[Rfam]
RNA sequence: CGAGGGUGCUCCUCGGUCUGGGACGGACAAGGCCUCGAUAACCUCAAUCCUCCCAGGUCAGGAGCACCUUUCUCAUGUCCGACACACCCUCAAACGAUCACCGGUGAAAG
Dot-bracket structure: .((((((((((((.((.(((((..((....((.........))....))..))))).))))))))))))))..........................(((....)))...